The record is a 126-nucleotide RNA from Ifrita kowaldi, which matches "MIR480 microRNA precursor family" in Rfam. Rfam 15.1 lists 3,070 matches to the family in 171 species. Taxonomically the source falls in Ifrita (Eukaryota, Opisthokonta, Chordata, Archosauria).
RNA sequence: UUACUUUGACUAUGCACAUCUUAAUUUUGUUAUGGCACAACUGCUGACAAAAUUUCUUACUUCAAACUGCCUACCUGGUUUACAUUAAAAAUUAAAAAACAGUAAUUUCUUGAAUUUUUGGGGGUU
Numbered sequence: 001u002u003a004c005u006u007u008g009a010c011u012a013u014g015c016a017c018a019u020c021u022u023a024a025u026u027u028u029g030u031u032a033u034g035g036c037a038c039a040a041c042u043g044c045u046g047a048c049a050a051a052a053u054u055u056c057u058u059a060c061u062u063c064a065a066a067c068u069g070c071c072u073a074c075c076u077g078g079u080u081u082a083c084a085u086u087a088a089a090a091a092u093u094a095a096a097a098a099a100c101a102g103u104a105a106u107u108u109c110u111u112g113a114a115u116u117u118u119u120g121g122g123g124g125u126u
Base pairs, nucleotide, nucleotide: 004124005123006122007121008119009118012115015112018111023107024106025105027102028101029100030099031098